RNA sequence: AUAUAUCUGUUGUCUAAUCUCAAUUGAGAACGGGGGACCCAUUUUUGGGGCUAAUCUAUAUUUUAUAUAUAGAAGAAGACCUUUUACUUCUAGCCCGACAGCUAACUCCGUAGACCUAGUUAAAGGACAGA
Numbered sequence: 001a002u003a004u005a006u007c008u009g010u011u012g013u014c015u016a017a018u019c020u021c022a023a024u025u026g027a028g029a030a031c032g033g034g035g036g037a038c039c040c041a042u043u044u045u046u047g048g049g050g051c052u053a054a055u056c057u058a059u060a061u062u063u064u065a066u067a068u069a070u071a072g073a074a075g076a077a078g079a080c081c082u083u084u085u086a087c088u089u090c091u092a093g094c095c096c097g098a099c100a101g102c103u104a105a106c107u108c109c110g111u112a113g114a115c116c117u118a119g120u121u122a123a124a125g126g127a128c129a130g131a
Base pairs, nucleotide, nucleotide: 012115013114014113018029019028020027030111031110032109033108034107035106040047041046048096049095050094056072057071058070059069075090076089077088078087
The family of this 131-nucleotide RNA from Halanaerobium praevalens is "c-di-AMP riboswitch aptamer (ydaO/yuaA leader)". A search with the family's covariance model found it, with a score of 82 bits.